[Rfam]
RNA sequence: CCCAAUAGCAUUGGGUCUGGCUGUCAAGUCAGACCCAAUGCUAUUGGAUCUAGUUAGACAAUCAAACCCAAGACUAUUGGUAGUUGGAUUCAAUAGCAUUGGAU
Number, nucleotide and partner (000 for none) at each position: 001c102002c101003c000004a100005a099006u098007a000008g097009c096010a094011u093012u092013g091014g090015g089016u088017c087018u086019g085020g084021c083022u082023g081024u080025c079026a078027a077028g074029u073030c000031a051032g050033a049034c000035c047036c046037a045038a044039u043040g000041c000042u000043a039044u038045u037046g036047g035048a000049u033050c032051u031052a000053g000054u000055u070056a000057g068058a000059c000060a000061a000062u000063c000064a000065a000066a000067c000068c057069c000070a055071a000072g000073a029074c028075u000076a000077u027078u026079g025080g024081u023082a022083g021084u020085u019086g018087g017088a016089u015090u014091c013092a012093a011094u010095a000096g009097c008098a006099u005100u004101g002102g001103a000104u000

MIR474 microRNA precursor family: a 104-nucleotide sequence from Populus tomentosa. Its family is annotated with RISC complex and miRNA-mediated post-transcriptional gene silencing in the Gene Ontology. For this family Rfam cites "Novel and mechanical stress-responsive MicroRNAs in Populus trichocarpa that are absent from Arabidopsis" (Lu et al., Plant Cell, 2005). Taxonomically the source falls in Populus (Eukaryota, Viridiplantae, rosids, Malpighiales).